[Rfam]
RNA: Bacterial large subunit ribosomal RNA, nucleotides 1758 to 2119
RNA sequence: CGAGUUAAUCCUCGCUAAGGAACUAGGCAAAAUAGCCCCGUACCUUCGGUAUAAGGGGUGCCCAAGUAGGGUGAAGUGUACAACGGAGCCCGAACGGGUCGCAGUGAAUUGGGCCAGGCGACUGUUUAACAAAAACACAGCACGCUGCUAAGUCGCGAAGACGAUGUAUAGCGUGUGACAUGUGCCCGGUGCCGGAAGGUCAAGCGGAGGUGUUAGCCCGUAAGGGCGAAGCACUGAAGUUAAGCCCCGGUAAACGGCGGCCGUAACUAUAACGGUCCUAAGGUAGCGAAAUUCCUUGUCGGGUAAGUUCCGACCUGCACGAAUCAUGUAACGAUCUGGCCGCUGUCUCGGCGAGUAACUCG
Numbered sequence: 001c002g003a004g005u006u007a008a009u010c011c012u013c014g015c016u017a018a019g020g021a022a023c024u025a026g027g028c029a030a031a032a033u034a035g036c037c038c039c040g041u042a043c044c045u046u047c048g049g050u051a052u053a054a055g056g057g058g059u060g061c062c063c064a065a066g067u068a069g070g071g072u073g074a075a076g077u078g079u080a081c082a083a084c085g086g087a088g089c090c091c092g093a094a095c096g097g098g099u100c101g102c103a104g105u106g107a108a109u110u111g112g113g114c115c116a117g118g119c120g121a122c123u124g125u126u127u128a129a130c131a132a133a134a135a136c137a138c139a140g141c142a143c144g145c146u147g148c149u150a151a152g153u154c155g156c157g158a159a160g161a162c163g164a165u166g167u168a169u170a171g172c173g174u175g176u177g178a179c180a181u182g183u184g185c186c187c188g189g190u191g192c193c194g195g196a197a198g199g200u201c202a203a204g205c206g207g208a209g210g211u212g213u214u215a216g217c218c219c220g221u222a223a224g225g226g227c228g229a230a231g232c233a234c235u236g237a238a239g240u241u242a243a244g245c246c247c248c249g250g251u252a253a254a255c256g257g258c259g260g261c262c263g264u265a266a267c268u269a270u271a272a273c274g275g276u277c278c279u280a281a282g283g284u285a286g287c288g289a290a291a292u293u294c295c296u297u298g299u300c301g302g303g304u305a306a307g308u309u310c311c312g313a314c315c316u317g318c319a320c321g322a323a324u325c326a327u328g329u330a331a332c333g334a335u336c337u338g339g340c341c342g343c344u345g346u347c348u349c350g351g352c353g354a355g356u357a358a359c360u361c362g
Base pairs, nucleotide, nucleotide: 001362002361003360004359009357011355012354013353014352015351016350018348019347020346035059036058037057038056039055044049060099061098062097063096076091078089079088081086100104112341113340114339115338116337117336118335119333120332123137124136125135140176141175142174143173144172145171146170147169148166152162153161154160179328180327181326182325184258185257186256189255190254191251192250193249194248195247198246199245200244204240205239209235210234211233212232213231216227217226218225219224259277260276261275262274263273264272278282288315298314299313300312301311302310303309
Dot-bracket structure: ((((....(.((((((.(((..............(((((....(....).....)))))((((............(.((.(....).)).)....))))(...).......(((((((((..(((.........)))..(((((((((...(((.....)))...)..))))))))..((((.(((..(((((((..(((...((...(((((..((((....))))...)))))...))...))))))))..)))))((((((.......))))))(...).....(.........((((((.....))))))).........))))...)).)))))))....))).)))))).).))))